[Rfam]
RNA sequence: GUAGAUACUCAUCCCACUCAUUAUGACAGUGUAUGACUUCAUAAACCCAGGGAUGAUGUAGAGCUGAUUGUCAGUGCCUAUGGUCCACGUUAUAGAUGAGUAAGUAUCACUGUCUUUUCAUCGCAAACCGGACACAACGUUGAGUGAGGCACUAUCCGUCUGUAGACCUGAUUGUAUUUAUACACCUGUCUUUUUUGAUAGGUGUUUUUUU
Number, nucleotide and partner (000 for none) at each position: 001g064002u063003a000004g000005a000006u060007a059008c058009u056010c055011a054012u053013c000014c052015c051016a000017c050018u000019c000020a042021u000022u000023a000024u000025g000026a000027c000028a000029g034030u000031g000032u000033a000034u029035g000036a000037c000038u000039u000040c000041a000042u020043a000044a000045a000046c000047c000048c000049a000050g017051g015052g014053a012054u011055g010056a009057u000058g008059u007060a006061g000062a000063g002064c001065u000066g000067a000068u000069u000070g000071u000072c000073a153074g152075u151076g150077c149078c148079u147080a000081u000082g000083g133084u132085c131086c130087a000088c000089g000090u000091u000092a000093u000094a000095g122096a121097u120098g119099a118100g117101u000102a000103a000104g000105u000106a000107u000108c000109a000110c000111u000112g000113u000114c000115u000116u000117u100118u099119c098120a097121u096122c095123g000124c000125a000126a000127a000128c000129c000130g086131g085132a084133c083134a000135c000136a000137a000138c000139g000140u000141u000142g000143a000144g000145u000146g000147a079148g078149g077150c076151a075152c074153u073154a000155u000156c000157c000158g167159u166160c165161u000162g000163u000164a000165g160166a159167c158168c000169u000170g000171a000172u000173u000174g000175u000176a000177u000178u000179u000180a000181u000182a205183c204184a203185c202186c201187u200188g199189u198190c197191u000192u000193u000194u000195u000196u000197g190198a189199u188200a187201g186202g185203u184204g183205u182206u000207u000208u000209u000210u000211u000

GlmZ RNA activator of glmS mRNA: a 211-nucleotide RNA from Xenorhabdus japonica. Its Rfam clan is "Glm clan". This RNA was discovered in E. coli during a large scale screen. The sraJ gene was expressed in early logarithmic phase, but its level decreased with cell growth. Specific cleavage products of this RNA were found. It scores 147 bits against the family's covariance model. NCBI's taxonomy places the organism under Bacteria, Pseudomonadota, Gammaproteobacteria, Morganellaceae, Xenorhabdus. By type it is a small RNA. The literature on the family includes a 2001 paper in Curr Biol by Argaman et al., "Novel small RNA-encoding genes in the intergenic regions of Escherichia coli".